A member of the RNA family "Bacillaceae-1 RNA" from Lederbergia galactosidilytica, 67 nucleotides long. The family's RNA type in Rfam is small RNA. The match comes from Rfam's covariance-model search (48 bits).
RNA sequence: GAUUUAAGAAGAAAGGCUAAAUUCGCGCUGUCCUGGCGCAGCGCCUUUCUGACCACCAUCCUGUUCG
Numbered sequence: 001g002a003u004u005u006a007a008g009a010a011g012a013a014a015g016g017c018u019a020a021a022u023u024c025g026c027g028c029u030g031u032c033c034u035g036g037c038g039c040a041g042c043g044c045c046u047u048u049c050u051g052a053c054c055a056c057c058a059u060c061c062u063g064u065u066c067g
Stems, first nucleotide, its partner, number of pairs: 011049007025039005053067001055065001057063001